[Rfam]
RNA sequence: GAAAACAAGCAGAAGCAUCCCGCUUCUCGCCUAAGUUGACUGAAGUCCUUGGGCCGAUAGUAAUGUUUAUUUAAUGAAGACAUUGGCAGCGGGGAUAUUUUGUUCUCGUUGCUUUUUUGCUUU
Numbered sequence: 001g002a003a004a005a006c007a008a009g010c011a012g013a014a015g016c017a018u019c020c021c022g023c024u025u026c027u028c029g030c031c032u033a034a035g036u037u038g039a040c041u042g043a044a045g046u047c048c049u050u051g052g053g054c055c056g057a058u059a060g061u062a063a064u065g066u067u068u069a070u071u072u073a074a075u076g077a078a079g080a081c082a083u084u085g086g087c088a089g090c091g092g093g094g095a096u097a098u099u100u101u102g103u104u105c106u107c108g109u110u111g112c113u114u115u116u117u118u119g120c121u122u123u
Stems, first nucleotide, its partner, number of pairs: 011027006029054003038047003088110010
Shown here is a 123-nucleotide RNA sequence from Granulicatella elegans, a member of the family "Ribosomal protein L20 leader". Rfam describes the family as follows. This family is a putative r-protein leader autoregulatory structure found in B. subtilis and other low-GC Gram-positive bacteria. It is located in the 5' untranslated regions of mRNAs encoding initiation factor 3 followed by ribosomal proteins L35 and L20 (infC-rpmI-rplT). A Rho-independent transcription terminator structure that is probably involved in regulation is included at the 3' end. The literature on the family includes a 1994 paper in Prog Nucleic Acid Res Mol Biol by Zengel and Lindahl, "Diverse mechanisms for regulating ribosomal protein synthesis in Escherichia coli".